[Rfam]
RNA sequence: UCGACUGUACUUACAAGGAUCUUGUAUACAGUAUAUAUCUUUGCCUUUGUUUCCGAACAAAGUCAUGUCAACCUGACUGGACGAUGAAUUAUACUGCACUGUUCGUAAAGGGAAGUGUGAGUUUAUUUCUUGGUCGGUAUCAUAUUGAUUCCACAAGCCAGAUUUAUUCUCGUUGAUGAUCUUGCGACUCUCUUUUGAGUUGCGAGGACGGAUGCAGAUUCUGACAGUCU
Number, nucleotide and partner (000 for none) at each position: 001u000002c000003g039004a000005c000006u035007g000008u033009a032010c031011u030012u000013a000014c000015a000016a027017g000018g025019a000020u000021c000022u000023u000024g000025u018026a000027u016028a000029c000030a011031g010032u009033a008034u000035a006036u000037a000038u000039c003040u000041u000042u000043g064044c000045c062046u061047u060048u059049g058050u057051u056052u000053c000054c000055g000056a051057a050058c049059a048060a047061a046062g045063u000064c043065a000066u000067g000068u000069c000070a000071a000072c000073c000074u000075g229076a228077c227078u226079g225080g000081a000082c000083g000084a000085u000086g000087a000088a000089u000090u000091a000092u000093a000094c217095u216096g215097c214098a213099c211100u210101g209102u208103u207104c206105g000106u000107a000108a000109a183110g182111g181112g180113a000114a000115g000116u000117g000118u000119g171120a170121g169122u000123u166124u000125a000126u000127u000128u000129c000130u000131u000132g000133g000134u000135c000136g000137g000138u000139a000140u000141c000142a000143u000144a000145u000146u000147g000148a000149u000150u000151c000152c000153a000154c000155a000156a000157g000158c000159c000160a000161g000162a000163u000164u000165u000166a123167u000168u000169c121170u120171c119172g000173u000174u000175g000176a000177u000178g000179a000180u112181c111182u110183u109184g000185c202186g201187a200188c199189u000190c197191u000192c000193u000194u000195u000196u000197g190198a000199g188200u187201u186202g185203c000204g000205a000206g104207g103208a102209c101210g100211g099212a000213u098214g097215c096216a095217g094218a000219u000220u000221c000222u000223g000224a000225c079226a078227g077228u076229c075230u000
A member of the RNA family "ACEA small nucleolar RNA U3" from Smittium mucronatum, 230 nucleotides long. Rfam's curators write: Small nucleolar RNAs (snoRNAs) are involved in the processing and modification of rRNA in the nucleolus. There are two main classes of snoRNAs: the box C/D class, and the box H/ACA class. U3 snoRNA is a member of the box C/D class. Pairs were carried over by alignment from the consensus structure, which is taken from published work. Gene Ontology terms of the family: RNA processing and nucleolus. The family has 28 seed sequences and 2,156 matches in Rfam 15.1. The organism belongs to Smittium, within Eukaryota. By type it is a C/D-box small nucleolar RNA.